The record is a 96-nucleotide RNA from Brizovirus syn33, which matches "PhotoRC-II RNA" in Rfam. Pairs were carried over by alignment from the consensus structure, which is taken from published work. It scores 73 bits against the family's covariance model. Taxonomically the source falls in Brizovirus syn33 (Viruses, Caudoviricetes, Pantevenvirales, Brizovirus).
RNA sequence: UAACUGUUCGUAACACUCCUCAAACCAAGACCUAUAGGGUGUCUAAACGCGUCUUUCAUAUCCUUGCCUUAGGGUGGCAAGGAAAUAGUAACUCCA
Numbered sequence: 001u002a003a004c005u006g007u008u009c010g011u012a013a014c015a016c017u018c019c020u021c022a023a024a025c026c027a028a029g030a031c032c033u034a035u036a037g038g039g040u041g042u043c044u045a046a047a048c049g050c051g052u053c054u055u056u057c058a059u060a061u062c063c064u065u066g067c068c069u070u071a072g073g074g075u076g077g078c079a080a081g082g083a084a085a086u087a088g089u090a091a092c093u094c095c096a
Base pairs, nucleotide, nucleotide: 014041015040016039017038018037027055028054029053030052031051062082063081064080065079066078067077068076